L31-Corynebacteriaceae ribosomal protein leader: a 75-nucleotide sequence from Corynebacterium variabile. It is one of the family's seed sequences. The organism belongs to Corynebacterium variabile, within Bacteria.
RNA sequence: ACCCAGGCACGACCUACGGUACGGACGGAUCACCGUCCCGCCUGCGGGACCGACCUGGUGCCCGACCCUGAGGGA
Numbered sequence: 001a002c003c004c005a006g007g008c009a010c011g012a013c014c015u016a017c018g019g020u021a022c023g024g025a026c027g028g029a030u031c032a033c034c035g036u037c038c039c040g041c042c043u044g045c046g047g048g049a050c051c052g053a054c055c056u057g058g059u060g061c062c063c064g065a066c067c068c069u070g071a072g073g074g075a
Stems, first nucleotide, its partner, number of pairs: 001059002004057004013048003017044003023038006